[Rfam]
RNA sequence: UCAAGUGUGAGGAGUAAGUUGAAACGAAAAGCGCUUGGAGUCGAAACACGGCAAGACGUUCAGGCGCUUUUUGCG
Numbered sequence: 001u002c003a004a005g006u007g008u009g010a011g012g013a014g015u016a017a018g019u020u021g022a023a024a025c026g027a028a029a030a031g032c033g034c035u036u037g038g039a040g041u042c043g044a045a046a047c048a049c050g051g052c053a054a055g056a057c058g059u060u061c062a063g064g065c066g067c068u069u070u071u072u073g074c075g
Stems, first nucleotide, its partner, number of pairs: 027071007037061003040057003
Cyano-1 RNA: a 75-nucleotide RNA sequence from Tolypothrix bouteillei. The base pairs follow the family's consensus structure, which is taken from published work.